[Rfam]
RNA sequence: UGGAUUCUGUAAAUGGCACUGGAAGAAUUCACGGGGGAUUUAAGCAAUAGACCCGUGGAGCUCCCGUGUCAUACACAGCGUCCG
Number, nucleotide and partner (000 for none) at each position: 001u000002g000003g082004a081005u080006u000007c078008u077009g076010u075011a000012a000013a072014u071015g070016g069017c068018a067019c000020u000021g064022g063023a000024a000025g000026a000027a000028u000029u058030c057031a056032c055033g054034g053035g000036g000037g000038a000039u000040u000041u000042a000043a000044g000045c000046a000047a000048u000049a000050g000051a000052c000053c034054c033055g032056u031057g030058g029059a000060g000061c000062u000063c022064c021065c000066g000067u018068g017069u016070c015071a014072u013073a000074c000075a010076c009077a008078g007079c000080g005081u004082c003083c000084g000
Source information: mir-263 microRNA precursor family: an 84-nucleotide RNA sequence from Pseudoatta argentina. The family's consensus secondary structure was predicted with RNAalifold. A search with the family's covariance model found it, with a score of 60 bits. The literature on the family includes a 2009 paper in BMC Genomics by Li et al., "Direct sequencing and expression analysis of a large number of miRNAs in Aedes aegypti and a multi-species survey of novel mosquito miRNAs". Rfam links the family to the GO terms miRNA-mediated post-transcriptional gene silencing and RISC complex. Clan: mir-182 clan. The family has 52 seed sequences and 368 matches in Rfam 15.1.